Source information
A member of the RNA family "GA-cis RNA", 89 nucleotides long. The base pairs follow the family's consensus structure, which is taken from published work.

[Rfam]
Nucleotides: 089
Stems, first nucleotide, its partner, number of pairs: 008048006016032006057079003061075002065071002
Number, partner (000 for none) and nucleotide at each position: 001000g002000u003000a004000a005000c006000g007000g008048g009047g010046a011045a012044a013043c014000a015000a016032a017031a018030u019029g020028a021027a022000c023000g024000u025000a026000g027021u028020u029019c030018a031017u032016u033000u034000u035000a036000u037000g038000u039000a040000a041000a042000u043013g044012u045011u046010u047009c048008c049000g050000a051000u052000g053000a054000a055000u056000a057079g058078c059077c060000g061075c062074u063000g064000a065071c066070c067000g068000a069000a070066g071065g072000g073000c074062g075061g076000g077059g078058g079057c080000a081000u082000u083000a084000c085000a086000u087000a088000u089000u